[Rfam]
RNA sequence: AAAAAAAAAAAAAAGGGGGAACCCCCAACCCCCGGGAAAUUUUUCCCCCUUUUUCCCCCCCCAAAAAAAAAUUUUUGGGGGGGGGGAAACCCCCGGGGGGGGGAAAAAGGGGGAAUUUUUUUCCCCCCCGGAG
Numbered sequence: 001a002a003a004a005a006a007a008a009a010a011a012a013a014a015g016g017g018g019g020a021a022c023c024c025c026c027a028a029c030c031c032c033c034g035g036g037a038a039a040u041u042u043u044u045c046c047c048c049c050u051u052u053u054u055c056c057c058c059c060c061c062c063a064a065a066a067a068a069a070a071a072u073u074u075u076u077g078g079g080g081g082g083g084g085g086g087a088a089a090c091c092c093c094c095g096g097g098g099g100g101g102g103g104a105a106a107a108a109g110g111g112g113g114a115a116u117u118u119u120u121u122u123c124c125c126c127c128c129c130g131g132a133g
Base pairs, nucleotide, nucleotide: 011053012052013051014050015049016048017047018046019045020044021043054086055085056084057083058082061078062077063076064075065074066073094130095129096128097127099126100125101124102123104122105121106120107119108118

ylbH leader: a 133-nucleotide RNA.
From the family's description: This family is a putative regulatory RNA structure that is found upstream of the ylbH gene in B. subtilis and related low GC Gram-positive bacteria.
The literature on the family includes a 2004 paper in Proc Natl Acad Sci U S A by Barrick et al., "New RNA motifs suggest an expanded scope for riboswitches in bacterial genetic control".